[Rfam]
RNA: Small Cajal body specific RNA 11
RNA sequence: UUGUCCUGGCCUGUGCUUUGUCUGCUCCCUUGUGCUCUGCUCUAACAGGAUAGUCUGGCAGGACACACAGCAAUUUCCCUCUCAGUUUAGGAGGGCAGUCCUAAGAAUAGAGCUGGCUCUUAAAGGCACAAGAGGACAAU
Numbered sequence: 001u002u003g004u005c006c007u008g009g010c011c012u013g014u015g016c017u018u019u020g021u022c023u024g025c026u027c028c029c030u031u032g033u034g035c036u037c038u039g040c041u042c043u044a045a046c047a048g049g050a051u052a053g054u055c056u057g058g059c060a061g062g063a064c065a066c067a068c069a070g071c072a073a074u075u076u077c078c079c080u081c082u083c084a085g086u087u088u089a090g091g092a093g094g095g096c097a098g099u100c101c102u103a104a105g106a107a108u109a110g111a112g113c114u115g116g117c118u119c120u121u122a123a124a125g126g127c128a129c130a131a132g133a134g135g136a137c138a139a140u
Base pairs, nucleotide, nucleotide: 002065003064004063005062006061007060008059010058011057024054025053026052029049030048031047032046033045078135079134080133081132082131085127086126087125088124091121092120093119094118095117096116098113099112101110102109103108